[Rfam]
RNA sequence: UCACUCACAAAGUGGUUGUCGUAUGCGUAGUUAGCCAUAUCACAGCCAGCUUUGAUGAGCGACA
Numbered sequence: 001u002c003a004c005u006c007a008c009a010a011a012g013u014g015g016u017u018g019u020c021g022u023a024u025g026c027g028u029a030g031u032u033a034g035c036c037a038u039a040u041c042a043c044a045g046c047c048a049g050c051u052u053u054g055a056u057g058a059g060c061g062a063c064a
Stems, first nucleotide, its partner, number of pairs: 005058003008054005013048007021040001024039002